[Rfam]
The record is a 61-nucleotide sequence from Lupinus albus, which matches "Plastid-psbN 5UTR RNA" in Rfam. The family's consensus secondary structure was predicted with LocARNA. The organism belongs to Lupinus, within Eukaryota.
RNA sequence: UGCAAUACCCAUAAAAGGAGUAGUCCCCCACCCUGGUGCUACUUUACCAUUUUCUGAAUUU
Number, nucleotide and partner (000 for none) at each position: 001u000002g000003c000004a000005a000006u000007a000008c000009c000010c000011a000012u000013a000014a000015a000016a000017g045018g044019a043020g042021u041022a040023g039024u038025c000026c036027c035028c000029c000030a000031c000032c000033c000034u000035g027036g026037u000038g024039c023040u022041a021042c020043u019044u018045u017046a000047c000048c000049a000050u000051u000052u000053u000054c000055u000056g000057a000058a000059u000060u000061u000

Notes:
From the family's description: Plastid psbN is a non-coding RNA (ncRNA) recognised in plastids. It was reported as a conserved 11 stem-loop in the prime untranslated region (5UTR) of psbN genes. For this family Rfam cites "Retrograde signaling in plants: A critical review focusing on the GUN pathway and beyond" (Richter et al., Plant Commun, 2023). It is annotated as a cis-regulatory element.